[Rfam]
RNA sequence: GAGGUAAACCUUCAUAACACUCGUAUAUUAAUGGGAAUAUGGCCCAUUCGUUUCUACCGGACGACCACGAUAAUCGACCGACAAUGAGUGACGGCGCAGCUUGA
Numbered sequence: 001g002a003g004g005u006a007a008a009c010c011u012u013c014a015u016a017a018c019a020c021u022c023g024u025a026u027a028u029u030a031a032u033g034g035g036a037a038u039a040u041g042g043c044c045c046a047u048u049c050g051u052u053u054c055u056a057c058c059g060g061a062c063g064a065c066c067a068c069g070a071u072a073a074u075c076g077a078c079c080g081a082c083a084a085u086g087a088g089u090g091a092c093g094g095c096g097c098a099g100c101u102u103g104a
Stems, first nucleotide, its partner, number of pairs: 018090007030048006058080003062076003
RNA: Purine riboswitch aptamer